[Rfam]
RNA sequence: AGCUGGUCAAAGUGCAGUGAUGUUUACAAGUAAUUGACCACAACCAGCUACAGAUUUCUUUGUUCUUCCCACUCCCACUGCUUCACUUGACUUGCCCUAU
Numbered sequence: 001a002g003c004u005g006g007u008c009a010a011a012g013u014g015c016a017g018u019g020a021u022g023u024u025u026a027c028a029a030g031u032a033a034u035u036g037a038c039c040a041c042a043a044c045c046a047g048c049u050a051c052a053g054a055u056u057u058c059u060u061u062g063u064u065c066u067u068c069c070c071a072c073u074c075c076c077a078c079u080g081c082u083u084c085a086c087u088u089g090a091c092u093u094g095c096c097c098u099a100u
Base pairs, nucleotide, nucleotide: 002095003094005092006091007090008089010088011087014084016079017078018077019076022074028064029063032060033059